This 67-nucleotide sequence from Tribolium castaneum belongs to the Rfam family "mir-29 microRNA precursor family".
It is one of the family's seed sequences.
This family represents the microRNA (miRNA) precursors mir-29.
NCBI's taxonomy places the organism under Eukaryota, Mandibulata, Pancrustacea, Eumetabola, Tribolium.
Rfam links the family to the GO terms gene silencing by miRNA and RISC complex.
[Rfam]
RNA sequence: UGGGCACUGUUUUCGUGUGGUGGUGAGAUUUUAUUUUGAUUCUAGCACCAUAUGAAAUCAGUUCUUG
Numbered sequence: 001u002g003g004g005c006a007c008u009g010u011u012u013u014c015g016u017g018u019g020g021u022g023g024u025g026a027g028a029u030u031u032u033a034u035u036u037u038g039a040u041u042c043u044a045g046c047a048c049c050a051u052a053u054g055a056a057a058u059c060a061g062u063u064c065u066u067g
Stems, first nucleotide, its partner, number of pairs: 001067004007061003011057005017051006026043003